This 74-nucleotide RNA from Capsicum annuum belongs to the Rfam family "Plastid-ycf2 5UTR RNA". The source organism's lineage runs through Eukaryota, Gunneridae, lamiids, Solanoideae and Capsicum. About the family: Plastid ycf2 is a non-coding RNA (ncRNA) recognised in plastids. It was found in the prime untranslated region (5UTR) of ycf2 genes, it presents a tRNA-like motif which suggests it can be involved in mRNA maturation, particularly involved in defining the precise 5' end of the transcript. On this family, see Richter et al., Plant Commun 2023: "Retrograde signaling in plants: A critical review focusing on the GUN pathway and beyond". A search with the family's covariance model found it, with a score of 69 bits. The base pairs follow the family's consensus structure, which was predicted with LocARNA.
RNA sequence: GUGUAUCCAGUAGGAAUUAAUCCUAUAAUUCGUCAACUAUGAGUUGGGCGCUUUAACCAUUUAGCCAUGGAUGA
Numbered sequence: 001g002u003g004u005a006u007c008c009a010g011u012a013g014g015a016a017u018u019a020a021u022c023c024u025a026u027a028a029u030u031c032g033u034c035a036a037c038u039a040u041g042a043g044u045u046g047g048g049c050g051c052u053u054u055a056a057c058c059a060u061u062u063a064g065c066c067a068u069g070g071a072u073g074a
Stems, first nucleotide, its partner, number of pairs: 004073005010026005039068003043065006050058001